[Rfam]
RNA sequence: UGUGUAGAGGUGGGGAGAUAUUCUGUAUUCUCUCUCUAGGUAAAUCCUUUCCUCUCACAGU
Dot-bracket structure: .(((.(((((..(((.(.....((..............))....).))).))))))))...

Background:
A member of the RNA family "mir-7398 microRNA precursor family" from Phascolarctos cinereus, 61 nucleotides long. A search with the family's covariance model found it, with a score of 58 bits. Taxonomically the source falls in Phascolarctos (Eukaryota, Metazoa, Vertebrata, Teleostomi).